Background
A member of the RNA family "SAM riboswitch aptamer (S box leader)" from Aceticella autotrophica, 95 nucleotides long.
RNA sequence: CUCUUAUCAAGAGUAGCUGAGGGACUGGCCCAAUGAAGCUCGGCAACCGGAUUUUGCGGUGCUAAUUCCAGCAGCAUAUCGCUGAAAGAUGAGAG
Numbered sequence: 001c002u003c004u005u006a007u008c009a010a011g012a013g014u015a016g017c018u019g020a021g022g023g024a025c026u027g028g029c030c031c032a033a034u035g036a037a038g039c040u041c042g043g044c045a046a047c048c049g050g051a052u053u054u055u056g057c058g059g060u061g062c063u064a065a066u067u068c069c070a071g072c073a074g075c076a077u078a079u080c081g082c083u084g085a086a087a088g089a090u091g092a093g094a095g
Base pairs, nucleotide, nucleotide: 001095002094003093004092005091006090007089008088013041015040016039017038021031022030023029025071026070027069028068042063043062044061045060047059048058067087072084073083074082075081
Taxonomically the source falls in Aceticella (Bacteria, Bacillati, Thermoanaerobacterales, Thermoanaerobacteraceae).
It scores 82 bits against the family's covariance model.